Shown here is a 136-nucleotide sequence from Oreochromis niloticus, a member of the family "Small nucleolar RNA SNORA22". It scores 95 bits against the family's covariance model. Its family is annotated with nucleolus and RNA processing in the Gene Ontology. Rfam classes the family as an H/ACA-box small nucleolar RNA.
RNA sequence: AUGCACAGCGAACACCCAAGGAUGCUAUCAUGGCUCCCCCUGGUUUUUGUGUCUGUGCUACAGUAACUCUGAUCUGUACCUCUGCAUUAGGAGAGUCUCUUCCUCCCCUACAUGUAUUCAGCGGAUCAGGAUAAUC
Numbered sequence: 001a002u003g004c005a006c007a008g009c010g011a012a013c014a015c016c017c018a019a020g021g022a023u024g025c026u027a028u029c030a031u032g033g034c035u036c037c038c039c040c041u042g043g044u045u046u047u048u049g050u051g052u053c054u055g056u057g058c059u060a061c062a063g064u065a066a067c068u069c070u071g072a073u074c075u076g077u078a079c080c081u082c083u084g085c086a087u088u089a090g091g092a093g094a095g096u097c098u099c100u101u102c103c104u105c106c107c108c109u110a111c112a113u114g115u116a117u118u119c120a121g122c123g124g125a126u127c128a129g130g131a132u133a134a135u136c
Base pairs, nucleotide, nucleotide: 003058004057005056006055007054008053010052013049014048016043017042018041020039024034025033026032060075062073064071065070082121083120084119085114086113087112089109090108091107093105094104095103